Bacteroidetes FopS (family of paralogous sRNAs): a 70-nucleotide RNA sequence from Prevotella sp. CAG:386.
Its family is annotated with sRNA-mediated gene silencing in the Gene Ontology.
It is annotated as a small RNA.
The organism belongs to Prevotella, within Bacteria.
About the family: The RNA-binding protein RbpB and BTncRNA_FopS sRNA are involved in the post-transcription regulation of polysaccharide utilisation loci (PUL). FopS sRNAs function as post-transcriptional repressors by binding to the vicinity of the start codon of the first mRNA of target PUL polycistrons, typically corresponding to the cognate SusC homolog, impeding translation of the respective glycan transporter.
On this family, see Ruttiger et al., Nat Commun 2025: "The global RNA-binding protein RbpB is a regulator of polysaccharide utilization in Bacteroides thetaiotaomicron".
[Rfam]
RNA sequence: GUGUUUUUCAUAGUAUUAGAUUUAAGGUUAUCAAGGUUGGGGGCUACGGCGGUAGCCCCGUUUUUGUAUA
Numbered sequence: 001g002u003g004u005u006u007u008u009c010a011u012a013g014u015a016u017u018a019g020a021u022u023u024a025a026g027g028u029u030a031u032c033a034a035g036g037u038u039g040g041g042g043g044c045u046a047c048g049g050c051g052g053u054a055g056c057c058c059c060g061u062u063u064u065u066g067u068a069u070a
Stems, first nucleotide, its partner, number of pairs: 041058007